[Rfam]
RNA sequence: UCCGGUCUAUGCAUGAUGGCAUGAUCAGAGCUGCUUUUAACUAACAUGAUCCCUUGCUUCGGCUUGAUAAGGAUCUAGUCUUAUACACAAUGGUAAGCCAGUAGUAGUAGAGGUAUAAGAAAUUUGCUACUAUGUUACUGAACCUAGGUGAACACUAGUAUAACUCAUUACAAAUGUGCUGGAGUAAUUAAAGAUCGCUUUGACGAGCCAACAAUGGAAGAGCCAGUCAUUUGUAUUGAGACCUAUCUAGUUAGUAACUGCUAAUGGAACGGUUUCGAUAUGGAUACAC
Numbered sequence: 001u002c003c004g005g006u007c008u009a010u011g012c013a014u015g016a017u018g019g020c021a022u023g024a025u026c027a028g029a030g031c032u033g034c035u036u037u038u039a040a041c042u043a044a045c046a047u048g049a050u051c052c053c054u055u056g057c058u059u060c061g062g063c064u065u066g067a068u069a070a071g072g073a074u075c076u077a078g079u080c081u082u083a084u085a086c087a088c089a090a091u092g093g094u095a096a097g098c099c100a101g102u103a104g105u106a107g108u109a110g111a112g113g114u115a116u117a118a119g120a121a122a123u124u125u126g127c128u129a130c131u132a133u134g135u136u137a138c139u140g141a142a143c144c145u146a147g148g149u150g151a152a153c154a155c156u157a158g159u160a161u162a163a164c165u166c167a168u169u170a171c172a173a174a175u176g177u178g179c180u181g182g183a184g185u186a187a188u189u190a191a192a193g194a195u196c197g198c199u200u201u202g203a204c205g206a207g208c209c210a211a212c213a214a215u216g217g218a219a220g221a222g223c224c225a226g227u228c229a230u231u232u233g234u235a236u237u238g239a240g241a242c243c244u245a246u247c248u249a250g251u252u253a254g255u256a257a258c259u260g261c262u263a264a265u266g267g268a269a270c271g272g273u274u275u276c277g278a279u280a281u282g283g284a285u286a287c288a289c
Stems, first nucleotide, its partner, number of pairs: 080097005101133011137273004147259003154251005164238001172231002178227005198207002208217002
The record is a 289-nucleotide RNA sequence from Alphacoronavirus chicagoense, which matches "Alphacoronavirus 3'UTR" in Rfam. The 3' UTR of alphacoronaviruses consists of two small hairpins (PK-SL2) which can form an alternate conformation (PK-SL1) where the loop region of the second hairpin interacts with the stem of the first hairpin. PK-SL2 has been confirmed in HCoV-229E and HCoV-NL63 by in vitro structure probing experiments. Downstream of this pseudoknot lies the hypervariable region (HVR), which is supported by many covarying basepairs in alphacoronaviruses. Further, a conserved octanucleotide sequence is present in the HVR. For this family Rfam cites "RNA structure analysis of alphacoronavirus terminal genome regions" (Madhugiri et al., Virus Res, 2014). By type it is a cis-regulatory element. NCBI's taxonomy places the organism under Viruses, Orthornavirae, Cornidovirineae, Orthocoronavirinae, Human coronavirus 229E.